[Rfam]
RNA sequence: AUUUGUCGUAGUUUUGUUUGAAAUAUUGUCCAAAUAAGACUAACAGCAGUUAAAUCA
Numbered sequence: 001a002u003u004u005g006u007c008g009u010a011g012u013u014u015u016g017u018u019u020g021a022a023a024u025a026u027u028g029u030c031c032a033a034a035u036a037a038g039a040c041u042a043a044c045a046g047c048a049g050u051u052a053a054a055u056c057a
Stems, first nucleotide, its partner, number of pairs: 008044002011040010
Rfam assigns this 57-nucleotide RNA from Streptococcus ovuberis to the family "Lacto-rpoB RNA".
A search with the family's covariance model found it, with a score of 68 bits.
By type it is a cis-regulatory element.